[Rfam]
A member of the RNA family "Small nucleolar RNA SNORD69" from Coregonus sp. 'balchen', 76 nucleotides long.
The pairing is the family consensus, mapped onto this sequence.
Rfam describes the family as follows. snoRNA HBII-210 belongs to the C/D family of snoRNAs. It is the human orthologue of the mouse MBII-210 and is predicted to guide the 2'O-ribose methylation of large 28S rRNA on residue G4464.
By type it is a C/D-box small nucleolar RNA.

RNA sequence: UGUAUGAAGCAUGAUGAAGUUGAAGAUCUGACAAAACUAUGGAGUCUAUAUUCAAUCCAACACUGAGCUUCAUACA
Numbered sequence: 001u002g003u004a005u006g007a008a009g010c011a012u013g014a015u016g017a018a019g020u021u022g023a024a025g026a027u028c029u030g031a032c033a034a035a036a037c038u039a040u041g042g043a044g045u046c047u048a049u050a051u052u053c054a055a056u057c058c059a060a061c062a063c064u065g066a067g068c069u070u071c072a073u074a075c076a
Stems, first nucleotide, its partner, number of pairs: 001076010